Small nucleolar RNA Z105: a 67-nucleotide RNA from Turnera subulata. The family's consensus secondary structure was predicted with CMfinder. The family's RNA type in Rfam is C/D-box small nucleolar RNA. The family has 11 seed sequences and 621 matches in Rfam 15.1. It scores 58 bits against the family's covariance model.

RNA sequence: CCAUAAUGAUGAUGAUUUAAAACUUUUUAUAUUCACAUGAUGAUUACUAACCUCCUACUCAUACUGA
Dot-bracket structure: .....((((.................((.............))...............)))).....